[Rfam]
RNA sequence: AGAUGGGGUAGAGGUCGCGGUUUAUAUCAGUAUCCUAUUGGAGAUCAAGUGAAAUCUGUGAAAAUAGGAAAAAGGAUAAAUCGCCGAAGCGUCUGGGAUCACUUUCUCCCAAAAGGCUGGGGCUGUACUCGAAUAGGGGCAGAACUGUCACAAUUCAAUCGAAUUGUGGAGAACUAUCUUCACC
Numbered sequence: 001a002g003a004u005g006g007g008g009u010a011g012a013g014g015u016c017g018c019g020g021u022u023u024a025u026a027u028c029a030g031u032a033u034c035c036u037a038u039u040g041g042a043g044a045u046c047a048a049g050u051g052a053a054a055u056c057u058g059u060g061a062a063a064a065u066a067g068g069a070a071a072a073a074g075g076a077u078a079a080a081u082c083g084c085c086g087a088a089g090c091g092u093c094u095g096g097g098a099u100c101a102c103u104u105u106c107u108c109c110c111a112a113a114a115g116g117c118u119g120g121g122g123c124u125g126u127a128c129u130c131g132a133a134u135a136g137g138g139g140c141a142g143a144a145c146u147g148u149c150a151c152a153a154u155u156c157a158a159u160c161g162a163a164u165u166g167u168g169g170a171g172a173a174c175u176a177u178c179u180u181c182a183c184c
Base pairs, nucleotide, nucleotide: 006179007178008177009176010175011174017084018083019082020081021080022079023078024077025076033069034068035067036066037065038064039063088118089117090116092113094111095110096109097108098107119146120145123142124141125140126139128137129136148169149168150167151166152165153164154163
A member of the RNA family "Lysine riboswitch aptamer" from Bacillus sp. T33-2, 184 nucleotides long. Rfam links the family to the GO term lysine biosynthetic process. Taxonomically the source falls in Bacillus (Bacteria, Bacillati, Bacilli, Bacillaceae). The family's consensus secondary structure is taken from published work. From the family's description: Riboswitches are metabolite binding domains within certain messenger RNAs that serve as precision sensors for their corresponding targets.